Record summary: Small nucleolar RNA SNORD34: a 90-nucleotide RNA from Brassica oleracea. snoRNA U34 is found in intron 5 of the ribosomal protein L13a gene in humans. The family's consensus secondary structure was predicted with PFOLD. Rfam classes the family as a C/D-box small nucleolar RNA. A reference for the family is Galardi et al. (2002), "Purified box C/D snoRNPs are able to reproduce site-specific 2'-O-methylation of target RNA in vitro", Mol Cell Biol. Rfam links the family to the GO terms RNA processing and nucleolus. The family is grouped with related families in Rfam's "SNORD34 clan".
RNA sequence: UUGAGCCGGUGAUGAUUGAAAAAGUUUGCCUACAUUGUUUGAUUUACCAUGAAAUGGAAACUUGAAUCUUAUAUUCACUCUGAGGCUCAU
Numbered sequence: 001u002u003g004a005g006c007c008g009g010u011g012a013u014g015a016u017u018g019a020a021a022a023a024g025u026u027u028g029c030c031u032a033c034a035u036u037g038u039u040u041g042a043u044u045u046a047c048c049a050u051g052a053a054a055u056g057g058a059a060a061c062u063u064g065a066a067u068c069u070u071a072u073a074u075u076c077a078c079u080c081u082g083a084g085g086c087u088c089a090u
Base pairs, nucleotide, nucleotide: 002089004087005086006085007084
Dot-bracket structure: .(.((((............................................................................)))).).